Annotation:
The record is a 111-nucleotide RNA sequence from Clostridium sp. CAG:299, which matches "THF (Tetrahydrofolate) riboswitch aptamer" in Rfam. Gene Ontology term of the family: tetrahydrofolate metabolic process. The match comes from Rfam's covariance-model search (87 bits). From the family's description: Tetrahydrofolate (THF) riboswitch was first reported for Ames et al. as an RNA motif in 5' untranslated (5'-UTR)regions of folate transport and biosynthesis genes in Firmicutes genomes. The organism belongs to Clostridium, within Bacteria. A reference for the family is Trausch et al. (2011), "The structure of a tetrahydrofolate-sensing riboswitch reveals two ligand binding sites in a single aptamer", Structure.
[Rfam]
RNA sequence: AGCAGAGUAGGGGAUCAGGCGUUAAGUGCCGGCUGGACAGGGAGUUGCCAGCCGGACGAAAAAGAGAUUUUCAAAAACUUCUUUGCGGUCGGUUCCCCGCAUCCCGCUGCA
Dot-bracket structure: .((((....(((((.(.(((((...((.((((((((...[[[.[...))))))))))...((((((............))))))))).)).).))))).].]]]..)))).